glmS glucosamine-6-phosphate activated ribozyme aptamer: a 150-nucleotide RNA sequence from Acidaminococcus intestini. Lineage of the source: Bacteria > Negativicutes > Acidaminococcales > Acidaminococcaceae > Acidaminococcus intestini. This entry contains a glucosamine-6-phosphate activated ribozyme that is found in the mRNA for GlmS. GlmS is an enzyme that uses fructose-6-phosphate and glutamine to generate glucosamine-6-phosphate.
[Rfam]
RNA sequence: GCAAGGCCUAGAGCGCAAGUGCCUAUCCUGAUAGGCAGACGAGGAAGAGGCUUAUCGAACCGUCAGCGGAUACCUCUCGGUGUGCUGCAACCGUAAACAGAUGACAAACCUUUCCGGUAACGGGAAGAACAGAGAGUCUGGGGCAGACGG
Number, nucleotide and partner (000 for none) at each position: 001g000002c000003a000004a000005g000006g000007c000008c000009u000010a000011g000012a000013g000014c000015g000016c000017a000018a000019g000020u037021g036022c035023c034024u033025a032026u031027c000028c000029u000030g000031a026032u025033a024034g023035g022036c021037a020038g000039a000040c000041g000042a000043g000044g000045a000046a077047g076048a075049g074050g073051c000052u000053u000054a000055u066056c000057g064058a063059a000060c000061c000062g000063u058064c057065a000066g055067c000068g000069g000070a000071u000072a000073c050074c049075u048076c047077u046078c093079g092080g091081u090082g000083u000084g000085c000086u000087g000088c000089a000090a081091c080092c079093g078094u000095a000096a000097a000098c140099a139100g138101a137102u136103g000104a000105c000106a000107a000108a000109c000110c127111u126112u125113u124114c123115c122116g121117g000118u000119a000120a000121c116122g115123g114124g113125a112126a111127g110128a000129a000130c000131a000132g000133a000134g000135a000136g102137u101138c100139u099140g098141g000142g000143g000144c000145a000146g000147a000148c000149g000150g000

The family's RNA type in Rfam is riboswitch.